[Rfam]
Nucleotides: 149
Base pairs, nucleotide, nucleotide: 005147006146007145008144009143011141012140013139014138015137016136017135020069021068022067073080074079083129084128085127086126087125088124089123090122091121
Number, partner (000 for none) and nucleotide at each position: 001000g002000a003000g004000u005147u006146u007145a008144u009143a010000g011141g012140u013139a014138g015137u016136g017135c018000a019000a020069g021068u022067a023000a024000a025000a026000a027000u028000u029000a030000a031000a032000a033000g034000u035000c036000u037000a038000u039000u040000u041000u042000u043000u044000a045000u046000a047000a048000g049000a050000u051000a052000a053000a054000a055000u056000u057000a058000u059000u060000u061000u062000a063000a064000c065000a066000a067022u068021a069020c070000u071000u072000a073080g074079u075000g076000a077000a078000a079074g080073c081000g082000a083129u084128c085127a086126u087125a088124g089123a090122u091121u092000a093000a094000u095000u096000g097000g098000c099000a100000u101000a102000g103000g104000u105000u106000a107000g108000a109000c110000c111000g112000g113000c114000c115000u116000u117000u118000u119000g120000c121091a122090a123089u124088u125087u126086a127085u128084g129083a130000g131000g132000a133000a134000a135017g136016u137015a138014c139013u140012a141011u142000a143009u144008a145007u146006a147005a148000g149000a
The record is a 149-nucleotide part of an RNA, which matches "Bacterial large subunit ribosomal RNA" in Rfam. Rfam 15.1 lists 51,934 matches to the family in 10,816 species.